[Rfam]
RNA sequence: UAGCACCUAGGGAAUGAAUGUCUCCCUUAGUAAUUAUUACUUAAACUGCUUUUUAAGCUGAUGACUUCUGCAUUUUG
Number, nucleotide and partner (000 for none) at each position: 001u000002a000003g000004c000005a000006c000007c000008u000009a000010g026011g025012g024013a023014a000015u000016g068017a067018a066019u000020g065021u064022c063023u013024c012025c011026c010027u000028u000029a000030g000031u000032a000033a000034u000035u000036a000037u000038u000039a000040c000041u000042u000043a000044a000045a000046c000047u000048g058049c057050u056051u000052u000053u000054u000055a000056a050057g049058c048059u000060g000061a000062u000063g022064a021065c020066u018067u017068c016069u000070g000071c000072a000073u000074u000075u000076u000077g000

Background
The family of this 77-nucleotide RNA sequence from Ruminococcus bovis is "Fluoride riboswitch aptamer (crcB RNA motif)". Pairs were carried over by alignment from the consensus structure, which is taken from published work. On this family, see Ren et al., Nature 2012: "Fluoride ion encapsulation by Mg2+ ions and phosphates in a fluoride riboswitch". The source organism's lineage runs through Bacteria, Bacillati, Bacillota, Clostridia and Ruminococcus.